[Rfam]
RNA: tRNA
Organism: Brevibacterium mcbrellneri
Nucleotides: 071
Base pairs, nucleotide, nucleotide: 001070002069003068004067005066006065007064010024011023012022026042027041028040029039030038047063048062049061050060051059
Number, partner (000 for none) and nucleotide at each position: 001070g002069g003068u004067g005066g006065c007064g008000u009000g010024g011023c012022c013000g014000a015000g016000a017000g018000g019000c020000g021000a022012g023011g024010c025000a026042g027041c028040g029039g030038c031000c032000u033000g034000c035000a036000a037000a038030g039029c040028c041027g042026u043000a044000u045000a046000c047063a048062c049061g050060g051059g052000u053000u054000c055000g056000a057000a058000u059051c060050c061049c062048g063047u064007c065006g066005c067004c068003a069002c070001c071000u